[Rfam]
RNA sequence: UGGUAACAUGAACCUAUGCUAAAGGGUCCCUGCCCCGACAGCACCUAUCAGUAGCCGUUGGGCAGGACCCUUUAGCACUGGUUCGUGUUACGAA
Numbered sequence: 001u002g003g004u005a006a007c008a009u010g011a012a013c014c015u016a017u018g019c020u021a022a023a024g025g026g027u028c029c030c031u032g033c034c035c036c037g038a039c040a041g042c043a044c045c046u047a048u049c050a051g052u053a054g055c056c057g058u059u060g061g062g063c064a065g066g067a068c069c070c071u072u073u074a075g076c077a078c079u080g081g082u083u084c085g086u087g088u089u090a091c092g093a094a
Stems, first nucleotide, its partner, number of pairs: 003091012017077011029066002034062003038058002045051002